[Rfam]
RNA sequence: UUGUGAGCACUACAAAUCUGAAAGAAGCCAUUAGUAAAGUUGAAGUAUUGGCGCACAGAAAUCUGAUAUAAGGCUUACUUGGUGGGGCAACCGAGCCAUAGAAUGGGAACGCCCAAAUAUUAACCGUAAUACCAUAAAGUAAAUCAGGCAGUACGCAACGAAAGAAUAUUAU
Numbered sequence: 001u002u003g004u005g006a007g008c009a010c011u012a013c014a015a016a017u018c019u020g021a022a023a024g025a026a027g028c029c030a031u032u033a034g035u036a037a038a039g040u041u042g043a044a045g046u047a048u049u050g051g052c053g054c055a056c057a058g059a060a061a062u063c064u065g066a067u068a069u070a071a072g073g074c075u076u077a078c079u080u081g082g083u084g085g086g087g088c089a090a091c092c093g094a095g096c097c098a099u100a101g102a103a104u105g106g107g108a109a110c111g112c113c114c115a116a117a118u119a120u121u122a123a124c125c126g127u128a129a130u131a132c133c134a135u136a137a138a139g140u141a142a143a144u145c146a147g148g149c150a151g152u153a154c155g156c157a158a159c160g161a162a163a164g165a166a167u168a169u170u171a172u
Stems, first nucleotide, its partner, number of pairs: 001015005027172001030169002035164001039159004045154006062148006073140003080134005085114004091107002094104001
Shown here is a 172-nucleotide RNA sequence from Saccharicrinis fermentans, a member of the family "Group II catalytic intron D1-D4-3".
NCBI's taxonomy places the organism under Bacteria, Pseudomonadati, Marinilabiliaceae, Saccharicrinis, Saccharicrinis fermentans.